[Rfam]
RNA sequence: GGGUCAAAAAUGACAAAUCAUAUGGUCUCAAAGAGGGAUGAUGACCUAAAAAUUAUGCUCAAUAGGCUUAUGCUGAAGCCC
Numbered sequence: 001g002g003g004u005c006a007a008a009a010a011u012g013a014c015a016a017a018u019c020a021u022a023u024g025g026u027c028u029c030a031a032a033g034a035g036g037g038a039u040g041a042u043g044a045c046c047u048a049a050a051a052a053u054u055a056u057g058c059u060c061a062a063u064a065g066g067c068u069u070a071u072g073c074u075g076a077a078g079c080c081c
Base pairs, nucleotide, nucleotide: 001081002080003079004078005075006074009071
RNA: Small nucleolar RNA SNORD115
Organism: Suricata suricatta